[Rfam]
RNA: Streptomyces RNA 3202
Organism: Streptomyces sp. HG99
RNA sequence: CCGAGUCCCGACGCACUCCCCCCCCGCGCCGGGACUCUUCCCGAGCCGAGCCUCGGCGUCCUCCCCCUGGCGCCGGGGCUCGGCUCUCUU
Number, nucleotide and partner (000 for none) at each position: 001c000002c000003g000004a000005g035006u034007c033008c032009c031010g030011a000012c028013g027014c026015a000016c000017u000018c000019c000020c000021c000022c000023c000024c000025c000026g014027c013028g012029c000030c010031g009032g008033g007034a006035c005036u000037c000038u000039u000040c000041c000042c000043g086044a085045g084046c083047c082048g081049a080050g079051c078052c077053u000054c075055g074056g073057c072058g071059u070060c069061c000062u000063c000064c000065c000066c000067c000068u000069g060070g059071c058072g057073c056074c055075g054076g000077g052078g051079c050080u049081c048082g047083g046084c045085u044086c043087u000088c000089u000090u000